[Rfam]
RNA sequence: AAUUAAUCCCUCUCUUUCUAGUUCUUCCUAGAGUAAGGAAAAGCUGGGUUGAGAGGGCAAACAAAUUAACUA
Numbered sequence: 001a002a003u004u005a006a007u008c009c010c011u012c013u014c015u016u017u018c019u020a021g022u023u024c025u026u027c028c029u030a031g032a033g034u035a036a037g038g039a040a041a042a043g044c045u046g047g048g049u050u051g052a053g054a055g056g057g058c059a060a061a062c063a064a065a066u067u068a069a070c071u072a
Stems, first nucleotide, its partner, number of pairs: 010055005017048005025040005
A member of the RNA family "mir-320 microRNA precursor family" from Pongo pygmaeus, 72 nucleotides long. The organism belongs to Pongo, within Eukaryota. The base pairs follow the family's consensus structure, which was predicted with RNAalifold. The family has 38 seed sequences and 659 matches in Rfam 15.1.